[Rfam]
RNA sequence: CUGCGAUGAUGGCAUUUCUUAGGACACCUUUGGAUUAAUCAUGAAAACAACUACUCUCUGAGCAGC
Numbered sequence: 001c002u003g004c005g006a007u008g009a010u011g012g013c014a015u016u017u018c019u020u021a022g023g024a025c026a027c028c029u030u031u032g033g034a035u036u037a038a039u040c041a042u043g044a045a046a047a048c049a050a051c052u053a054c055u056c057u058c059u060g061a062g063c064a065g066c
Base pairs, nucleotide, nucleotide: 001065002064003063004062
Small nucleolar RNA SNORD58: a 66-nucleotide RNA from Macaca mulatta. Clan: SNORD58 clan. snoRNA U58 is found in introns 1, 3 and 6 of the ribosomal protein RPL17 gene in humans. It is annotated as a C/D-box small nucleolar RNA. Gene Ontology terms of the family: nucleolus and RNA processing. The sequence is in the family's curated seed alignment. The family's consensus secondary structure was predicted with PFOLD. Lineage of the source: Eukaryota > Chordata > Euteleostomi > Primates > Macaca.